[Rfam]
RNA sequence: GCAGACUCACUCUGCACCCAGCCGCAGCCCCAGGCGGGUGCUUUUUCCGUCUGCCACAGGAACUUGCGGGGGCUGUGACCUCUGCCCUGUUACGGGCAGCACAGCUACCCCGGUACACGGGU
Numbered sequence: 001g002c003a004g005a006c007u008c009a010c011u012c013u014g015c016a017c018c019c020a021g022c023c024g025c026a027g028c029c030c031c032a033g034g035c036g037g038g039u040g041c042u043u044u045u046u047c048c049g050u051c052u053g054c055c056a057c058a059g060g061a062a063c064u065u066g067c068g069g070g071g072g073c074u075g076u077g078a079c080c081u082c083u084g085c086c087c088u089g090u091u092a093c094g095g096g097c098a099g100c101a102c103a104g105c106u107a108c109c110c111c112g113g114u115a116c117a118c119g120g121g122u
Stems, first nucleotide, its partner, number of pairs: 001054006014041006022033001024031001067112005072105006080096003

A member of the RNA family "Small nucleolar RNA SNORA77" from Bos taurus, 122 nucleotides long. Rfam links the family to the GO terms RNA processing and nucleolus. For this family Rfam cites "A computational screen for mammalian pseudouridylation guide H/ACA RNAs" (Schattner et al., RNA, 2006). About the family: ACA63 (SNORA77) is a member of the H/ACA class of snoRNAs that guide the sites of modification of uridines to pseudouridines. This snoRNA was identified by computational screening and its expression in mouse experimentally verified by Northern blot and primer extension analysis. Taxonomically the source falls in Bos (Eukaryota, Opisthokonta, Bilateria, Amniota).